[Rfam]
RNA sequence: ACCGCGUACUUACCGUCUAUAUAGCAGCCGAGAUACAUGUAUUUCACUUGCUAUAUAGCAGGUAAGUACGUGGUUU
Number, nucleotide and partner (000 for none) at each position: 001a074002c073003c072004g071005c070006g069007u068008a067009c066010u065011u064012a063013c062014c061015g000016u000017c058018u057019a056020u055021a054022u053023a052024g051025c050026a049027g048028c000029c000030g045031a044032g000033a042034u041035a040036c000037a000038u000039g000040u035041a034042u033043u000044u031045c030046a000047c000048u027049u026050g025051c024052u023053a022054u021055a020056u019057a018058g017059c000060a000061g014062g013063u012064a011065a010066g009067u008068a007069c006070g005071u004072g003073g002074u001075u000076u000
Rfam assigns this 76-nucleotide sequence from Ameiurus melas to the family "mir-7563 microRNA precursor family". Gene Ontology terms of the family: RISC complex and miRNA-mediated post-transcriptional gene silencing. Pairs were carried over by alignment from the consensus structure, which was predicted with RNAalifold.